Shown here is a 165-nucleotide RNA sequence from Streptomyces sp. TLI_235, a member of the family "c-di-AMP riboswitch aptamer (ydaO/yuaA leader)". NCBI's taxonomy places the organism under Bacteria, Bacillati, Kitasatosporales, Streptomycetaceae, Streptomyces. The match comes from Rfam's covariance-model search (71 bits). This family represents a conserved RNA structure found upstream of the ydaO and yuaA genes in Bacillus subtilis and related genes in other bacteria. The ydaO/yuaA element is thought to act as a genetic 'off' switch for the ydaO and yuaA genes in its native state. It is believed that the element may be triggered during osmotic shock leading to activation of ydaO, a predicted amino acid transporter gene, and members of the yuaA-yubG operon which code for KtrA and KtrB K+ transporters.
RNA sequence: CGGGGUCACGCACCAUUCCGUGCACGGCAGGAGCGGGGGACCCAAGGUAAGUGCCGCGCCCGGUGAUCCGGGACGGCUUGGGGUGAAGUCGCGUCAUUUUCGCGACCGGGCGAACUCCCCGCCCGAACCCGACAGCUCACCUCGCAGGCGUCGGAGAGGAAAACC
Numbered sequence: 001c002g003g004g005g006u007c008a009c010g011c012a013c014c015a016u017u018c019c020g021u022g023c024a025c026g027g028c029a030g031g032a033g034c035g036g037g038g039g040a041c042c043c044a045a046g047g048u049a050a051g052u053g054c055c056g057c058g059c060c061c062g063g064u065g066a067u068c069c070g071g072g073a074c075g076g077c078u079u080g081g082g083g084u085g086a087a088g089u090c091g092c093g094u095c096a097u098u099u100u101c102g103c104g105a106c107c108g109g110g111c112g113a114a115c116u117c118c119c120c121g122c123c124c125g126a127a128c129c130c131g132a133c134a135g136c137u138c139a140c141c142u143c144g145c146a147g148g149c150g151u152c153g154g155a156g157a158g159g160a161a162a163a164c165c
Stems, first nucleotide, its partner, number of pairs: 009150003013147001017032003033145006043080004081130003089105004108124004